[Rfam]
Vibrio RNA AS9: a 104-nucleotide RNA sequence from Pseudoalteromonas ulvae. A reference for the family is Liu et al. (2009), "Experimental discovery of sRNAs in Vibrio cholerae by direct cloning, 5S/tRNA depletion and parallel sequencing", Nucleic Acids Res. Identified by direct cloning an parallel sequencing experiments with 5S/tRNA depletion. Confirmed by Northern blot.
RNA sequence: CUGCUGACAACGUUCUUGUGUCAACGUCAAACAAAUUAAUCCACGUCCAUAUGUCGCCAUAAAAUUGAUUGCUUCGGCACUGAUGUGCUCGGCAGCCAUAAUUA
Numbered sequence: 001c002u003g004c005u006g007a008c009a010a011c012g013u014u015c016u017u018g019u020g021u022c023a024a025c026g027u028c029a030a031a032c033a034a035a036u037u038a039a040u041c042c043a044c045g046u047c048c049a050u051a052u053g054u055c056g057c058c059a060u061a062a063a064a065u066u067g068a069u070u071g072c073u074u075c076g077g078c079a080c081u082g083a084u085g086u087g088c089u090c091g092g093c094a095g096c097c098a099u100a101a102u103u104a
Stems, first nucleotide, its partner, number of pairs: 003058001005056004010027005035050002041045001066104005071096002074092003077088003